[Rfam]
RNA sequence: AAACCCAGAAAAGCGACGGACAGGGUCCUUUUGUCCGUCACUUUUUUGGAUUUAC
Numbered sequence: 001a002a003a004c005c006c007a008g009a010a011a012a013g014c015g016a017c018g019g020a021c022a023g024g025g026u027c028c029u030u031u032u033g034u035c036c037g038u039c040a041c042u043u044u045u046u047u048g049g050a051u052u053u054a055c
Stems, first nucleotide, its partner, number of pairs: 001053003005049009015039007
A member of the RNA family "MIR8008 microRNA precursor family" from Solanum commersonii, 55 nucleotides long.
The organism belongs to Solanum, within Eukaryota.
A search with the family's covariance model found it, with a score of 69 bits.